Description
Small Cajal body specific RNA 6: a 278-nucleotide RNA from Triplophysa tibetana. The family's RNA type in Rfam is small Cajal body RNA. About the family: U88 is small Cajal body specific RNA (scaRNA). scaRNAs are a novel class of small nuclear RNAs which localise to the Cajal bodies. U88 is found associated with both fibrillarin and Gar1p and co-localises with coilin in Cajal bodies. The source organism's lineage runs through Eukaryota, Bilateria, Chordata, Ostariophysi and Triplophysa. A reference for the family is Huttenhofer et al. (2001), "RNomics: an experimental approach that identifies 201 candidates for novel, small, non-messenger RNAs in mouse", EMBO J.
[Rfam]
Nucleotides: 278
Base pairs, nucleotide, nucleotide: 001278002277003276004275036258038256039255040254043231044230045229046228047227048226060218061217062216063126064125065124066123068121069120083110084109085108086107087106088105089104090103091101134196135195136194137193138192139191140190153182155180156179157178158177159176161174162173
Number, partner (000 for none) and nucleotide at each position: 001278g002277g003276u004275c005000a006000a007000u008000g009000a010000u011000g012000a013000g014000a015000u016000g017000u018000u019000a020000a021000a022000g023000g024000u025000c026000u027000g028000a029000a030000g031000c032000c033000g034000u035000c036258a037000u038256g039255u040254c041000c042000c043231a044230u045229c046228a047227g048226u049000c050000u051000c052000u053000c054000c055000a056000c057000c058000c059000a060218u061217c062216c063126c064125a065124g066123c067000c068121g069120c070000c071000a072000c073000u074000g075000u076000u077000c078000a079000u080000u081000u082000c083110c084109c085108a086107g087106c088105a089104a090103g091101c092000u093000u094000a095000a096000g097000u098000c099000g100000u101091g102000u103090u104089u105088u106087g107086c108085u109084g110083g111000u112000u113000u114000a115000a116000g117000g118000u119000g120069g121068c122000a123066g124065c125064u126063g127000a128000u129000a130000u131000u132000u133000u134196g135195g136194a137193c138192a139191u140190u141000u142000c143000u144000g145000c146000u147000g148000u149000a150000u151000u152000u153182a154000a155180a156179u157178g158177u159176c160000u161174c162173u163000c164000a165000g166000a167000g168000u169000a170000c171000a172000a173162a174161g175000u176159g177158a178157c179156a180155u181000c182153u183000u184000g185000a186000c187000a188000g189000u190140a191139g192138u193137g194136u195135c196134c197000g198000a199000c200000a201000u202000c203000a204000u205000c206000a207000g208000a209000a210000a211000a212000c213000a214000c215000a216062g217061g218060a219000g220000g221000g222000g223000g224000a225000g226048a227047c228046u229045g230044g231043u232000g233000u234000c235000g236000g237000a238000c239000a240000u241000u242000u243000a244000a245000c246000c247000g248000g249000c250000a251000c252000g253000u254040g255039a256038u257000c258036u259000c260000u261000a262000g263000u264000u265000u266000u267000c268000a269000a270000g271000c272000u273000g274000a275004g276003a277002c278001c